[Rfam]
Rfam assigns this 140-nucleotide RNA sequence from Phyllostomus discolor to the family "Small nucleolar RNA SNORA57". Rfam's curators write: U99 belongs to the H/ACA class of snoRNAs which are thought to guide the sites of modification of uridines to pseudouridines, the target for this family is unknown. On this family, see Vitali et al., Nucleic Acids Res 2003: "Identification of 13 novel human modification guide RNAs". Taxonomically the source falls in Phyllostomus (Eukaryota, Eumetazoa, Craniata, Euteleostomi). The family has 26 seed sequences and 1,736 matches in Rfam 15.1. The family's consensus secondary structure was predicted with PFOLD.
RNA sequence: CCUCCUCUUCUUGGCAGGUGUCAGUCAUGGGGUCCAAGUCCUGAAAUGUACAGAGGCAGCAGGAAAUGGAUCUGCCCCCUUAGCAUAAUGUCUUCAUGGUUUUCAAUCUGCGGACUCUAUCCUCAAAUGCUAGGCCACAG
Dot-bracket structure: ((((..........((((.....(.........).....)))).........))))........................((((((......(((.(((........))).)))............))))))........